Alphaproteobacterial sRNA BjrC1505: a 138-nucleotide RNA from Rhodoplanes sp. It scores 101 bits against the family's covariance model.
[Rfam]
RNA sequence: CCCGCGGUAAGAGGCCGUUAAGCUUUCCGGAUUAUUACUGGACUCGUCCACCUCGUGGACAUCGAGUGGCUCCUGUCCACUCUGUUUGACGCCUCCCUGUUGACACUUUAGGGCCGCCUUCGUGGCGGCCCCUUUUUU
Number, nucleotide and partner (000 for none) at each position: 001c041002c040003c000004g000005c000006g000007g000008u000009a000010a000011g000012a000013g000014g036015c000016c000017g000018u000019u034020a033021a032022g000023c030024u029025u000026u000027c000028c000029g024030g023031a000032u021033u020034a019035u000036u014037a000038c000039u000040g002041g001042a000043c000044u000045c000046g060047u059048c058049c057050a000051c000052c000053u000054c000055g000056u000057g049058g048059a047060c046061a000062u000063c000064g082065a081066g080067u079068g078069g077070c000071u000072c000073c000074u000075g000076u000077c069078c068079a067080c066081u065082c064083u000084g000085u000086u000087u000088g101089a100090c099091g098092c000093c000094u000095c000096c000097c000098u091099g090100u089101u088102g000103a000104c000105a000106c000107u000108u000109u000110a000111g131112g130113g129114c128115c127116g126117c125118c124119u000120u000121c000122g000123u000124g118125g117126c116127g115128g114129c113130c112131c111132c000133u000134u000135u000136u000137u000138u000